Shown here is a 76-nucleotide sequence from Microtus ochrogaster, a member of the family "mir-3473 microRNA precursor family".
Gene Ontology terms of the family: cellular response to mechanical stimulus, miRNA-mediated post-transcriptional gene silencing and RISC complex.
RNA sequence: ACCACUGAGCCAUCUCUCCAGCCCUUCAGCUGUUUUAAAAAAGUAUAUCUACAGGCUGGAGAGAUGGCUCAGUGGU
Dot-bracket structure: .((((((((((((((((((((((..............................)))))))))))))))))))))).

Lineage of the source: Eukaryota > Opisthokonta > Metazoa > Theria > Microtus. A search with the family's covariance model found it, with a score of 76 bits.